[Rfam]
RNA sequence: CGGGUGAACUGUGGUUAAGGAACUCGGCAAAAUGCCCCCGUAACUUCGGGAGAAGGGGGGCCACCGAAGAUCACCAGCCCAUGCGGUUGGUUGGUGUUUGGUGGUCGCAGAGAAUAGAGGGAAGCGACUGUUUAUUAAAAACACAGGUCCGUGCGAAAACGUGGAAGUUGAUGUAUACGGACUGACGCCUGCCCGGUGCUGGAAGGUUAAGAGGACCUGUUAGAACCCCUGUGGGGUUCGAAGCGGAAAAGCCCCAGUAAACGGCGGUGGUAACUAUAACCAUCCUAAGGUAGCGAAAUUCCUUGUCGGGUAAGUUCCGACCUGCACGAAUGGCGUAACGACUUCCCUGCUGUCUCAACCACAGGCCCG
Dot-bracket structure: ((((....((((((((.(((..............(((((....(....).....)))))((((((........((((((.....)))))).........))))))(...).......(((((((((..(((.........)))..(((((((((...(((......)))...)..))))))))..((((.(((..(((((((..(((.........((((..(((((((...)))))))...))))....))))))))..)))))((((((.......))))))(...).....(.........((((((.....))))))).........))))...)).)))))))....))).)))))))).))))